[Rfam]
RNA sequence: AGACGCUGCGCGGGAGAGAUCGGCGGUGGUUACCGUCGGCGCCGAAGGAGCAACCGCCCCGGAAACUCUCAGGCAAAAGGACCGCACGCAGCGG
Dot-bracket structure: ......((.((((......((((............)))).(((((..(((...((.....))...))))).))).......)))).))......
Shown here is a 94-nucleotide RNA from Pleomorphomonas diazotrophica, a member of the family "Glycine riboswitch aptamer". It scores 64 bits against the family's covariance model.